This 137-nucleotide RNA sequence from Actinoplanes friuliensis belongs to the Rfam family "c-di-AMP riboswitch aptamer (ydaO/yuaA leader)". The source organism's lineage runs through Bacteria, Actinomycetota, Micromonosporaceae, Actinoplanes and Actinoplanes friuliensis. The match comes from Rfam's covariance-model search (84 bits).
[Rfam]
RNA sequence: GGCAGCCCACCGCCUAAUCGCCGCGAGGCGAGCCGGGGACCCAUGUGUAGUAGUGGGGUGAAUCCACGUAACCGUGGUAGGGAUCGCUUCCGUCCCGAACCCGUCAGCUAACCCGGUCGGUGGUCACGCGGAAGGAU
Numbered sequence: 001g002g003c004a005g006c007c008c009a010c011c012g013c014c015u016a017a018u019c020g021c022c023g024c025g026a027g028g029c030g031a032g033c034c035g036g037g038g039a040c041c042c043a044u045g046u047g048u049a050g051u052a053g054u055g056g057g058g059u060g061a062a063u064c065c066a067c068g069u070a071a072c073c074g075u076g077g078u079a080g081g082g083a084u085c086g087c088u089u090c091c092g093u094c095c096c097g098a099a100c101c102c103g104u105c106a107g108c109u110a111a112c113c114c115g116g117u118c119g120g121u122g123g124u125c126a127c128g129c130g131g132a133a134g135g136a137u
Stems, first nucleotide, its partner, number of pairs: 011122004018031005032117006042055002056102003064077004080096004